[Rfam]
RNA sequence: ACAUGAAUUUUGUAUUGCGCACAUUACUUAGACGGGCUCUAGAGAGGCAUAUAGGAA
Dot-bracket structure: ..................((.(.((.....)).).))....................
Numbered sequence: 001a002c003a004u005g006a007a008u009u010u011u012g013u014a015u016u017g018c019g020c021a022c023a024u025u026a027c028u029u030a031g032a033c034g035g036g037c038u039c040u041a042g043a044g045a046g047g048c049a050u051a052u053a054g055g056a057a
Stems, first nucleotide, its partner, number of pairs: 019037002022034001024032002
This 57-nucleotide RNA from Solanum tuberosum belongs to the Rfam family "Plastid-ndhJ 3UTR RNA". Plastid ndhJ is a non-coding RNA (ncRNA) present in plastids. It was identified as a short stem-loop motif in the 3 prime untranslate region (3UTR) of ndhJ gene. By type it is a cis-regulatory element. Rfam 15.1 lists 869 matches to the family in 155 species. A reference for the family is Richter et al. (2023), "Retrograde signaling in plants: A critical review focusing on the GUN pathway and beyond", Plant Commun. The match comes from Rfam's covariance-model search (60 bits).